About this RNA: The family of this 109-nucleotide RNA from Sorghum bicolor is "MIR5565 microRNA precursor family". Gene Ontology terms of the family: RISC complex and miRNA-mediated post-transcriptional gene silencing. The base pairs follow the family's consensus structure, which was predicted with RNAalifold. It scores 89 bits against the family's covariance model. NCBI's taxonomy places the organism under Eukaryota, Streptophytina, Magnoliopsida, Andropogonodae, Sorghum.
RNA sequence: GUUGUCAGAUUCACUUCAAUCUAUGUGUAUUGGUGUGAAUUAGGAUAGAAUUUAGUUCAAGUUUCACUCCAAUCCACCUCAACACACAUGGAUUGAUAUGAAUCCGACU
Number, nucleotide and partner (000 for none) at each position: 001g000002u000003u000004g108005u107006c106007a000008g104009a103010u102011u101012c100013a099014c000015u000016u096017c095018a094019a093020u092021c091022u090023a089024u088025g087026u086027g085028u084029a000030u082031u081032g080033g000034u000035g077036u076037g075038a000039a073040u072041u071042a000043g069044g000045a000046u066047a000048g000049a000050a000051u000052u000053u000054a000055g000056u000057u000058c000059a000060a000061g000062u000063u000064u000065c000066a046067c000068u000069c043070c000071a041072a040073u039074c000075c037076a036077c035078c000079u000080c032081a031082a030083c000084a028085c027086a026087c025088a024089u023090g022091g021092a020093u019094u018095g017096a016097u000098a000099u013100g012101a011102a010103u009104c008105c000106g006107a005108c004109u000